The record is a 110-nucleotide RNA sequence from Mizuhopecten yessoensis, which matches "Vault RNA" in Rfam. The family has 73 seed sequences and 2,873 matches in Rfam 15.1. It is annotated as a non-coding RNA gene.
RNA sequence: GGGUUGGCUCAGUCGUGUGGUUACUUCGUUGACCAAUUCAAAAUUUGUGUACCUUACAAAAUGAUAGGGAGCAAUCCCUAUAAUAGCCACUGACGCACUCCAACUUUUUU
Numbered sequence: 001g002g003g004u005u006g007g008c009u010c011a012g013u014c015g016u017g018u019g020g021u022u023a024c025u026u027c028g029u030u031g032a033c034c035a036a037u038u039c040a041a042a043a044u045u046u047g048u049g050u051a052c053c054u055u056a057c058a059a060a061a062u063g064a065u066a067g068g069g070a071g072c073a074a075u076c077c078c079u080a081u082a083a084u085a086g087c088c089a090c091u092g093a094c095g096c097a098c099u100c101c102a103a104c105u106u107u108u109u110u
Stems, first nucleotide, its partner, number of pairs: 002105006012094004017090004026074001028072002